[Rfam]
RNA sequence: GUUAGUGGGUAAUUGCGUGUCGCUUAUGCGACAUGAGGAAAGUCCAUGCUCGCACUGACUGCGAUGUCAGUAGUGUUCGUGCUAGCUGAAAAAAUAAGGCUAGGCAGUCAGCAAUGAUUGACGGCCAACGAAAGACCUAAAGGUAACCAUGGUUUAGUAGUUGUUAAGGUGCCACAGUGACGAAGCUGGUUAGAAAUAAACAGCGUGGAACGCGGUAAACCCCACGAGCGAGCAACCCAAACUUUGGUAGGGGCGCUUGAUCUAGCAAAAUGAAGCGAUGGUCGGGGAGGCAGCAAUGCCUGAGAUAGAUGAUUACCGCUAAAAGAAGCUUGCCACGUUUCUUUUAGAACAAAACAUGGCUCACAGCU
Numbered sequence: 001g002u003u004a005g006u007g008g009g010u011a012a013u014u015g016c017g018u019g020u021c022g023c024u025u026a027u028g029c030g031a032c033a034u035g036a037g038g039a040a041a042g043u044c045c046a047u048g049c050u051c052g053c054a055c056u057g058a059c060u061g062c063g064a065u066g067u068c069a070g071u072a073g074u075g076u077u078c079g080u081g082c083u084a085g086c087u088g089a090a091a092a093a094a095u096a097a098g099g100c101u102a103g104g105c106a107g108u109c110a111g112c113a114a115u116g117a118u119u120g121a122c123g124g125c126c127a128a129c130g131a132a133a134g135a136c137c138u139a140a141a142g143g144u145a146a147c148c149a150u151g152g153u154u155u156a157g158u159a160g161u162u163g164u165u166a167a168g169g170u171g172c173c174a175c176a177g178u179g180a181c182g183a184a185g186c187u188g189g190u191u192a193g194a195a196a197u198a199a200a201c202a203g204c205g206u207g208g209a210a211c212g213c214g215g216u217a218a219a220c221c222c223c224a225c226g227a228g229c230g231a232g233c234a235a236c237c238c239a240a241a242c243u244u245u246g247g248u249a250g251g252g253g254c255g256c257u258u259g260a261u262c263u264a265g266c267a268a269a270a271u272g273a274a275g276c277g278a279u280g281g282u283c284g285g286g287g288a289g290g291c292a293g294c295a296a297u298g299c300c301u302g303a304g305a306u307a308g309a310u311g312a313u314u315a316c317c318g319c320u321a322a323a324a325g326a327a328g329c330u331u332g333c334c335a336c337g338u339u340u341c342u343u344u345u346a347g348a349a350c351a352a353a354a355c356a357u358g359g360c361u362c363a364c365a366g367c368u
Base pairs, nucleotide, nucleotide: 004368005367006366007364008317009316010315011314012313013312014311016035017034018033019032020031021030041361042360044359045358046357047356048355049232050231051230052229053228054071055070056069057068058067059066077227078226079225080224081223082103083102084101085100086099087098104122105120106119107118108117109116110115123222124221126163127162128161129160134154135153136152137151142147169220170219171216172215173214185204186203187202188201190199191198192197236252237251238250256286257285258284259283260282261281262280288301289300290299291298292297319347320346321345322344323343324342325341326340327339328338329337
The family of this 368-nucleotide RNA sequence from Weissella kandleri is "Bacterial RNase P class B". The family's RNA type in Rfam is ribozyme. Clan: RNaseP clan. From the family's description: Ribonuclease P (RNase P) is a ubiquitous endoribonuclease, found in archaea, bacteria and eukarya as well as chloroplasts and mitochondria. Lineage of the source: Bacteria > Bacillati > Bacillota > Lactobacillaceae > Weissella.